[Rfam]
RNA sequence: UCGUCAGUGCGGUACAUCCUGACCUGCCCCGCCUGCGCGGGCAGCACGUGAUGAGCGCGCAGCGAUGACGUCAGUGAUUACGUCACGCGGGGCGCGCGGGUUCGAGCAACAAAACCCGCGCCGCCUUCGGACUCUGAC
Number, nucleotide and partner (000 for none) at each position: 001u000002c000003g000004u000005c000006a000007g000008u000009g000010c000011g000012g000013u000014a000015c000016a000017u000018c000019c000020u000021g000022a000023c000024c044025u043026g042027c000028c041029c040030c039031g038032c037033c000034u000035g000036c000037g032038c031039g030040g029041g028042c026043a025044g024045c000046a000047c000048g000049u000050g000051a000052u000053g000054a000055g000056c000057g000058c000059g000060c000061a000062g000063c000064g000065a000066u000067g000068a000069c087070g086071u000072c000073a083074g000075u080076g000077a000078u000079u000080a075081c000082g000083u073084c000085a000086c070087g069088c000089g000090g000091g125092g124093c000094g121095c120096g119097c118098g117099g116100g115101u114102u000103c000104g000105a000106g000107c000108a000109a000110c000111a000112a000113a000114a101115c100116c099117c098118g097119c096120g095121c094122c000123g000124c092125c091126u000127u000128c000129g000130g000131a000132c000133u000134c000135u000136g000137a000138c000

Source information
This 138-nucleotide RNA from Drymodes brunneopygia belongs to the Rfam family "U8 small nucleolar RNA". On this family, see Peculis et al., Gene 2001: "The U8 snoRNA gene family: identification and characterization of distinct, functional U8 genes in Xenopus". Lineage of the source: Eukaryota > Vertebrata > Teleostomi > Amniota > Drymodes. The family has 55 seed sequences and 1,597 matches in Rfam 15.1.